[Rfam]
RNA sequence: UACCAAUGAUGGAAUUCAAAUAAAUCAUCAGAUCUGAUGUGUAACAACAUAUGUGAUUACAAUCUUGAUGCUGAGGUA
Numbered sequence: 001u002a003c004c005a006a007u008g009a010u011g012g013a014a015u016u017c018a019a020a021u022a023a024a025u026c027a028u029c030a031g032a033u034c035u036g037a038u039g040u041g042u043a044a045c046a047a048c049a050u051a052u053g054u055g056a057u058u059a060c061a062a063u064c065u066u067g068a069u070g071c072u073g074a075g076g077u078a
Stems, first nucleotide, its partner, number of pairs: 001078004